Soft rot Enterobacteriaceae Rev 39 5'UTR: a 299-nucleotide RNA from Erwinia tracheiphila. For this family Rfam cites "Discovery and profiling of small RNAs responsive to stress conditions in the plant pathogen Pectobacterium atrosepticum" (Kwenda et al., BMC Genomics, 2016). It scores 125 bits against the family's covariance model. The family's consensus secondary structure was predicted with RNAfold. Rfam's curators write: From bacteria cultured under starvation conditions. Rfam classes the family as a cis-regulatory element.
RNA sequence: AAAAGUUGAAGUUCUUCGGCUAACUGUGAUAACUCUGUAAGUAUUACUUCGAACAAACGAAAUUACUGAAUCCAAAUGAAAGCCCUUCUACGAGUUCUAAGCCUGGUCGUCAUUCGCGUCGUCGUGAUUAUUAUCACGCCGUGCGGGGCUACGCUCGGAGGAAGAAAGGCUUAAAAAUCAAGCCUGAUUUCGAAAAAACCCCCGCACCGAAAGGUCCGGGGGUUUUUUUUCGGUAAUGUGUUAAUGGCAGAGGAACAAAAUAUGACUGGUAAAAUAAAAUGCUGUAUUUCCCAGAUCAA
Numbered sequence: 001a002a003a004a005g006u007u008g009a010a011g012u013u014c015u016u017c018g019g020c021u022a023a024c025u026g027u028g029a030u031a032a033c034u035c036u037g038u039a040a041g042u043a044u045u046a047c048u049u050c051g052a053a054c055a056a057a058c059g060a061a062a063u064u065a066c067u068g069a070a071u072c073c074a075a076a077u078g079a080a081a082g083c084c085c086u087u088c089u090a091c092g093a094g095u096u097c098u099a100a101g102c103c104u105g106g107u108c109g110u111c112a113u114u115c116g117c118g119u120c121g122u123c124g125u126g127a128u129u130a131u132u133a134u135c136a137c138g139c140c141g142u143g144c145g146g147g148g149c150u151a152c153g154c155u156c157g158g159a160g161g162a163a164g165a166a167a168g169g170c171u172u173a174a175a176a177a178u179c180a181a182g183c184c185u186g187a188u189u190u191c192g193a194a195a196a197a198a199c200c201c202c203c204g205c206a207c208c209g210a211a212a213g214g215u216c217c218g219g220g221g222g223u224u225u226u227u228u229u230u231c232g233g234u235a236a237u238g239u240g241u242u243a244a245u246g247g248c249a250g251a252g253g254a255a256c257a258a259a260a261u262a263u264g265a266c267u268g269g270u271a272a273a274a275u276a277a278a279a280u281g282c283u284g285u286a287u288u289u290c291c292c293a294g295a296u297c298a299a
Base pairs, nucleotide, nucleotide: 005033006032007031008030011027012026015022038069040067041066042065044062045061049060050059084253085252086251088247089246090245092242093241096238098236100234103233104232105231106230108118109117110116120141121140123138124137126135127134128133142159144157145156146155147154161191162190163189168185169184171182172181193228194227195226196225197224198223199222200221201220202219203218204217206215207214208213255285256284257283260280262275263274